This 102-nucleotide sequence from Terribacillus sp. AE2B 122 belongs to the Rfam family "SAM riboswitch aptamer (S box leader)". Pairs were carried over by alignment from the consensus structure, which is taken from published work. The match comes from Rfam's covariance-model search (86 bits).
RNA sequence: UUCUUAUCACGAGAGGUGGAGGGACUGGCCCUUUGAAGCCUCGGCAGCAGGCAGUAAUGUACUGUGCCAAUUCCAGCAGACGACAAGUCUGACAGAUAAGAG
Numbered sequence: 001u002u003c004u005u006a007u008c009a010c011g012a013g014a015g016g017u018g019g020a021g022g023g024a025c026u027g028g029c030c031c032u033u034u035g036a037a038g039c040c041u042c043g044g045c046a047g048c049a050g051g052c053a054g055u056a057a058u059g060u061a062c063u064g065u066g067c068c069a070a071u072u073c074c075a076g077c078a079g080a081c082g083a084c085a086a087g088u089c090u091g092a093c094a095g096a097u098a099a100g101a102g
Base pairs, nucleotide, nucleotide: 001102002101003100004099005098006097007096008095013042014041015040016039017038021031022030023029025076026075027074028073043068044067045066046065048064049063051060052059053058072094077091078090079089080088081087
The SAM riboswitch is found upstream of a number of genes which code for proteins involved in methionine or cysteine biosynthesis in Gram-positive bacteria.